[Rfam]
RNA sequence: UUAGAUUUUCUUCAUUUUCUUCUAGAAUUUUUAUGGGAUUCUUGUUGUUGAUGGAGAUGAUAUGAAGAUGAAAAAGAGGAGAAG
Numbered sequence: 001u002u003a004g005a006u007u008u009u010c011u012u013c014a015u016u017u018u019c020u021u022c023u024a025g026a027a028u029u030u031u032u033a034u035g036g037g038a039u040u041c042u043u044g045u046u047g048u049u050g051a052u053g054g055a056g057a058u059g060a061u062a063u064g065a066a067g068a069u070g071a072a073a074a075a076g077a078g079g080a081g082a083a084g
Stems, first nucleotide, its partner, number of pairs: 006077004011072009026049003
Shown here is an 84-nucleotide sequence from Medicago truncatula, a member of the family "MIR5298 microRNA precursor family".
The family's consensus secondary structure was predicted with RNAalifold.
It scores 71 bits against the family's covariance model.
Rfam links the family to the GO terms RISC complex and miRNA-mediated post-transcriptional gene silencing.